[Rfam]
RNA sequence: AUUGCAAGUUUGAGGCUACAGCAAAAGUACUCAUGGCACUGGCCUGUCAGUUUCCAAUGAAUUUGUGAAUUCUGCU
Numbered sequence: 001a002u003u004g005c006a007a008g009u010u011u012g013a014g015g016c017u018a019c020a021g022c023a024a025a026a027g028u029a030c031u032c033a034u035g036g037c038a039c040u041g042g043c044c045u046g047u048c049a050g051u052u053u054c055c056a057a058u059g060a061a062u063u064u065g066u067g068a069a070u071u072c073u074g075c076u
Stems, first nucleotide, its partner, number of pairs: 014044002016041001020076004025071002027039002048065003052061003

The record is a 76-nucleotide RNA sequence from Crocodylus porosus, which matches "Mammalian CPEB3 ribozyme" in Rfam. Pairs were carried over by alignment from the consensus structure, which is taken from published work. It scores 39 bits against the family's covariance model. The mammalian CPEB3 ribozyme is a self cleaving RNA located in the second intron of the CPEB3 gene which belongs to a family of genes regulating messenger RNA polyadenylation. This ribozyme is highly conserved and found only in mammals.